[Rfam]
RNA sequence: AGAGCGUUCGGCGACUGACGGAUUACAUAGAUCUCUAUGGGGAAGCCGAAAUUGCGUUUCGUGUCGACCGUCUGGGCAAAAAAC
Number, nucleotide and partner (000 for none) at each position: 001a000002g000003a000004g053005c000006g000007u050008u049009c048010g047011g046012c045013g000014a000015c042016u041017g072018a071019c070020g069021g068022a000023u000024u000025a000026c000027a038028u037029a036030g035031a000032u000033c000034u000035c030036u029037a028038u027039g000040g000041g016042g015043a000044a000045g012046c011047c010048g009049a008050a007051a000052u000053u004054g000055c000056g000057u000058u000059u000060c000061g000062u078063g077064u076065c075066g000067a000068c021069c020070g019071u018072c017073u000074g000075g065076g064077c063078a062079a000080a000081a000082a000083a000084c000

Rfam assigns this 84-nucleotide sequence from Candidatus Borkfalkia ceftriaxoniphila to the family "ZMP/ZTP riboswitch aptamer (pfl RNA motif)". A search with the family's covariance model found it, with a score of 49 bits. Lineage of the source: Bacteria > Bacillati > Clostridia > Christensenellales > Candidatus Borkfalkia.